[Rfam]
RNA sequence: GAGUCAAUGAUGAAAUAUUUGCAUUGUCUCUAGAGAGAUGAUGACUUAAAAGUCAUGCUCAGUGGUGUUACAUGAGGACC
Number, nucleotide and partner (000 for none) at each position: 001g080002a000003g000004u077005c074006a073007a000008u072009g071010a000011u000012g000013a000014a000015a000016u000017a000018u000019u000020u000021g000022c000023a000024u000025u000026g000027u000028c000029u000030c000031u000032a000033g000034a000035g000036a000037g000038a000039u000040g000041a000042u000043g000044a000045c000046u000047u000048a000049a000050a000051a000052g000053u000054c000055a000056u000057g000058c000059u000060c000061a000062g000063u000064g000065g000066u000067g000068u000069u000070a000071c009072a008073u006074g005075a000076g000077g004078a000079c000080c001
RNA: Small nucleolar RNA SNORD115
Organism: Carlito syrichta